[Rfam]
RNA sequence: AUAAAAAGUGCUAUAAAAAAGUAGCCAACAUAUUUUGCUUUCCGAGUAGUGCCUCUUUUGAGGCACUUUUUUUGUGUU
Numbered sequence: 001a002u003a004a005a006a007a008g009u010g011c012u013a014u015a016a017a018a019a020a021g022u023a024g025c026c027a028a029c030a031u032a033u034u035u036u037g038c039u040u041u042c043c044g045a046g047u048a049g050u051g052c053c054u055c056u057u058u059u060g061a062g063g064c065a066c067u068u069u070u071u072u073u074g075u076g077u078u
Stems, first nucleotide, its partner, number of pairs: 001073001003071006023039003027035001028033001050065006
Description: Shown here is a 78-nucleotide RNA sequence from Histophilus somni, a member of the family "Aggregatibacter sRNA 20". The organism belongs to Histophilus somni, within Bacteria. Rfam classes the family as a small RNA. Rfam's curators put it in the seed alignment. A reference for the family is Oogai et al. (2017), "Small RNA repertoires and their intraspecies variation in Aggregatibacter actinomycetemcomitans", DNA Res. Rfam describes the family as follows. Validated by RT-PCR and Northern blot.